[Rfam]
RNA sequence: UCCAGUUAUGGUGAUAUUGUACCUAAAACAAUAACUGGUAAAAUAGUCGGUGGCGUAUGUUCAUUAAGUGGUGUAUUAGUUAUAGCUCUUCCUGUUCCUGUUAUUGUCUCCAAU
Numbered sequence: 001u002c003c004a005g006u007u008a009u010g011g012u013g014a015u016a017u018u019g020u021a022c023c024u025a026a027a028a029c030a031a032u033a034a035c036u037g038g039u040a041a042a043a044u045a046g047u048c049g050g051u052g053g054c055g056u057a058u059g060u061u062c063a064u065u066a067a068g069u070g071g072u073g074u075a076u077u078a079g080u081u082a083u084a085g086c087u088c089u090u091c092c093u094g095u096u097c098c099u100g101u102u103a104u105u106g107u108c109u110c111c112a113a114u
Stems, first nucleotide, its partner, number of pairs: 001113001005110001008107004013102004019097001021095002037077004050062001
Shown here is a 114-nucleotide sequence from Lottia gigantea, a member of the family "Potassium channel RNA editing signal". The match comes from Rfam's covariance-model search (70 bits). Rfam 15.1 lists 14,095 matches to the family in 1,000 species. The organism belongs to Lottia, within Eukaryota.